[Rfam]
RNA sequence: ACCUGUACUUACUGUAAGUCGCUCUGGAUAAGAGCGUCUACUAAAUGACUAGAA
Numbered sequence: 001a002c003c004u005g006u007a008c009u010u011a012c013u014g015u016a017a018g019u020c021g022c023u024c025u026g027g028a029u030a031a032g033a034g035c036g037u038c039u040a041c042u043a044a045a046u047g048a049c050u051a052g053a054a
Base pairs, nucleotide, nucleotide: 013043014041015040016039020036021035022034023033024032025031
RNA: UnaL2 LINE 3' element